RNA: T-box leader
RNA sequence: AUGAAAUCAAUGCGGAAGCCGAGUAUAGAGUUUAACAUCUUUAGAGAGUUCGUGGACGGUGCAAACGAACGAUGACGAUUCUAGAAGCUACUUCCAAGAGGUUCUAAACCAACCCGUAUCUCUGCGUUAAAGAGUUGAGUGUCUACAAUAGUAGAAAUUAAGGUGGUACCACGGAUAUAAUGUUCGUCCUUUGA
Numbered sequence: 001a002u003g004a005a006a007u008c009a010a011u012g013c014g015g016a017a018g019c020c021g022a023g024u025a026u027a028g029a030g031u032u033u034a035a036c037a038u039c040u041u042u043a044g045a046g047a048g049u050u051c052g053u054g055g056a057c058g059g060u061g062c063a064a065a066c067g068a069a070c071g072a073u074g075a076c077g078a079u080u081c082u083a084g085a086a087g088c089u090a091c092u093u094c095c096a097a098g099a100g101g102u103u104c105u106a107a108a109c110c111a112a113c114c115c116g117u118a119u120c121u122c123u124g125c126g127u128u129a130a131a132g133a134g135u136u137g138a139g140u141g142u143c144u145a146c147a148a149u150a151g152u153a154g155a156a157a158u159u160a161a162g163g164u165g166g167u168a169c170c171a172c173g174g175a176u177a178u179a180a181u182g183u184u185c186g187u188c189c190u191u192u193g194a
Base pairs, nucleotide, nucleotide: 007099008098015094016093017092018091026083027082028081029080030079031078037073038072039071048070049069050068051067052066053065101113102112103111115126116125117124142155143154144153145152146151160191161190162189163188171187172186173185174184175183